The record is an 84-nucleotide RNA sequence from Ruegeria sp. ANG-S4, which matches "chrB-a RNA" in Rfam.
The family's consensus secondary structure is taken from published work.
The family has 163 seed sequences and 347 matches in Rfam 15.1.
The match comes from Rfam's covariance-model search (58 bits).
The organism belongs to Ruegeria, within Bacteria.
RNA sequence: GCCAAGGGGUCAGCUUGCGAACACCCCGUGAGGCGGCAGCCCAAGUUUCGCAUGUAUCCGAAGUCAAAAUGGAGACAUGCCAUG
Numbered sequence: 001g002c003c004a005a006g007g008g009g010u011c012a013g014c015u016u017g018c019g020a021a022c023a024c025c026c027c028g029u030g031a032g033g034c035g036g037c038a039g040c041c042c043a044a045g046u047u048u049c050g051c052a053u054g055u056a057u058c059c060g061a062a063g064u065c066a067a068a069a070u071g072g073a074g075a076c077a078u079g080c081c082a083u084g
Stems, first nucleotide, its partner, number of pairs: 006027005050080006